[Rfam]
RNA: mir-204 microRNA precursor family
RNA sequence: GUGUGACCUGUGGGCUUCCCUUUGUCAUCCUAUGCCUGGAGAUCACAGUGAGGCAGGGACAGCAAAGGGAUGCUCAGCUGUCGUCUCU
Numbered sequence: 001g002u003g004u005g006a007c008c009u010g011u012g013g014g015c016u017u018c019c020c021u022u023u024g025u026c027a028u029c030c031u032a033u034g035c036c037u038g039g040a041g042a043u044c045a046c047a048g049u050g051a052g053g054c055a056g057g058g059a060c061a062g063c064a065a066a067g068g069g070a071u072g073c074u075c076a077g078c079u080g081u082c083g084u085c086u087c088u
Stems, first nucleotide, its partner, number of pairs: 017070006024063002028059004034054004